Shown here is a 66-nucleotide sequence from Nannospalax galili, a member of the family "Small nucleolar RNA SNORD109A". Gene Ontology terms of the family: nucleolus and RNA processing. The family has 7 seed sequences and 412 matches in Rfam 15.1. The literature on the family includes a 2001 paper in Hum Mol Genet by Runte et al., "The IC-SNURF-SNRPN transcript serves as a host for multiple small nucleolar RNA species and as an antisense RNA for UBE3A". Humans have two copies of the SNORD109 gene, SNORD109A and SNORD109B. Its Rfam clan is "SNORD74 clan". Taxonomically the source falls in Nannospalax (Eukaryota, Opisthokonta, Bilateria, Teleostomi).
RNA sequence: GGAUUGAUGAAGAGAACAACUGUCUGAAGAUUCUGAGGGACUCAGUCUAAUGGUAAUCUGAGGUCC
Numbered sequence: 001g002g003a004u005u006g007a008u009g010a011a012g013a014g015a016a017c018a019a020c021u022g023u024c025u026g027a028a029g030a031u032u033c034u035g036a037g038g039g040a041c042u043c044a045g046u047c048u049a050a051u052g053g054u055a056a057u058c059u060g061a062g063g064u065c066c
Stems, first nucleotide, its partner, number of pairs: 001066005